[Rfam]
RNA sequence: UUAUAAGCAAAUUUUGAUUUUUUUAAGUUCAUUCAAUUAAUGAUGUAUAUGUUCCAUAAUAUAGAUCACAUACAUCAUUAAUUGAAUGAACUUAAAAAAUUAAAAUUUGCUUAUAA
Numbered sequence: 001u002u003a004u005a006a007g008c009a010a011a012u013u014u015u016g017a018u019u020u021u022u023u024u025a026a027g028u029u030c031a032u033u034c035a036a037u038u039a040a041u042g043a044u045g046u047a048u049a050u051g052u053u054c055c056a057u058a059a060u061a062u063a064g065a066u067c068a069c070a071u072a073c074a075u076c077a078u079u080a081a082u083u084g085a086a087u088g089a090a091c092u093u094a095a096a097a098a099a100u101u102a103a104a105a106u107u108u109g110c111u112u113a114u115a116a
Base pairs, nucleotide, nucleotide: 002115003114004113005112006111007110009108010107011106012105013104015102016101017100019099020098021097022096023095024094025093026092028090029089030088031087032086033085034084035083036082037081038080039079040078041077042076043075044074045073050068051067053065
Rfam assigns this 116-nucleotide sequence from Medicago truncatula to the family "MIR2593 microRNA precursor family". Rfam links the family to the GO terms RISC complex and miRNA-mediated post-transcriptional gene silencing. The match comes from Rfam's covariance-model search (98 bits).